[Rfam]
RNA: SAM riboswitch aptamer (S box leader)
Organism: Tyzzerella sp. An114
RNA sequence: UUCUUAUUAAGAGAGGGUGGAGGGAAAUGGCCCAGUGAAGCCUCGGCAACUUUCAAACUUUAAAAAUUUAAAAGUUUUGAAAAAGUGCCAAAUCCAUCAGCUUUUUUAUAUUAUUUUUAAUAUAUAUAAAAACUGCUGAAAAAUAAGAU
Numbered sequence: 001u002u003c004u005u006a007u008u009a010a011g012a013g014a015g016g017g018u019g020g021a022g023g024g025a026a027a028u029g030g031c032c033c034a035g036u037g038a039a040g041c042c043u044c045g046g047c048a049a050c051u052u053u054c055a056a057a058c059u060u061u062a063a064a065a066a067u068u069u070a071a072a073a074g075u076u077u078u079g080a081a082a083a084a085g086u087g088c089c090a091a092a093u094c095c096a097u098c099a100g101c102u103u104u105u106u107u108a109u110a111u112u113a114u115u116u117u118u119a120a121u122a123u124a125u126a127u128a129a130a131a132a133c134u135g136c137u138g139a140a141a142a143a144u145a146a147g148a149u
Stems, first nucleotide, its partner, number of pairs: 002148007013044001015043004022033003027097004045089004050085002052081006093141001098138004